[Rfam]
RNA sequence: GUCGGGCUGUGUUUGCAGCAGCCUGUAAUCUCAAGCUUAAUGGGGAGACUGAUAAAAUUAGCGGCGCCAGAUUACGGCUGUCCAGUGUGGCAAUUUGCCUUCUGCAGUGUACUAUGGGCCAUGACGCCCGUAGCGAUGCCGGGUGCGGCUAUAGUUCUGCUGGCGAAGGCCUGGGCAGAACUAGGGCCAUAAUGAGCUGCGCACCGCGCUAUGCUGGCUUCACAGAGCAGCGAAAAGCGGCCACAUCAGGUUCAUGUUGCUCGGAAUACGUCAGGCUCGAUUAUAUGCGCUGCAGGUACUGAAGCAGUUGCUGGCCACGCUAAUUUUU
Numbered sequence: 001g002u003c004g005g006g007c008u009g010u011g012u013u014u015g016c017a018g019c020a021g022c023c024u025g026u027a028a029u030c031u032c033a034a035g036c037u038u039a040a041u042g043g044g045g046a047g048a049c050u051g052a053u054a055a056a057a058u059u060a061g062c063g064g065c066g067c068c069a070g071a072u073u074a075c076g077g078c079u080g081u082c083c084a085g086u087g088u089g090g091c092a093a094u095u096u097g098c099c100u101u102c103u104g105c106a107g108u109g110u111a112c113u114a115u116g117g118g119c120c121a122u123g124a125c126g127c128c129c130g131u132a133g134c135g136a137u138g139c140c141g142g143g144u145g146c147g148g149c150u151a152u153a154g155u156u157c158u159g160c161u162g163g164c165g166a167a168g169g170c171c172u173g174g175g176c177a178g179a180a181c182u183a184g185g186g187c188c189a190u191a192a193u194g195a196g197c198u199g200c201g202c203a204c205c206g207c208g209c210u211a212u213g214c215u216g217g218c219u220u221c222a223c224a225g226a227g228c229a230g231c232g233a234a235a236a237g238c239g240g241c242c243a244c245a246u247c248a249g250g251u252u253c254a255u256g257u258u259g260c261u262c263g264g265a266a267u268a269c270g271u272c273a274g275g276c277u278c279g280a281u282u283a284u285a286u287g288c289g290c291u292g293c294a295g296g297u298a299c300u301g302a303a304g305c306a307g308u309u310g311c312u313g314g315c316c317a318c319g320c321u322a323a324u325u326u327u328u
Base pairs, nucleotide, nucleotide: 001049002048003047004024005023006022007021008020009019010018029046030045031044054327055326056325057324058323059322060321062319063318066315067314068313069312070311075310076309077308078307079306080305081304085299086298087297120275122273123272124271125270126269128264129263132261133260134259135258138251139250140249142247143246144245145244147188148187149186150185152183153182154181155180156179157178158177159176160175161174162171163170164169189193196241197240198239199238200237207232208231209230214225215224216223
Metazoan signal recognition particle RNA: a 328-nucleotide sequence from Coemansia sp. RSA 1591. Gene Ontology terms of the family: signal recognition particle, endoplasmic reticulum targeting and SRP-dependent cotranslational protein targeting to membrane, signal sequence recognition. The family's consensus secondary structure is taken from published work. The match comes from Rfam's covariance-model search (75 bits). Rfam describes the family as follows. The signal recognition particle (SRP) is a universally conserved ribonucleoprotein.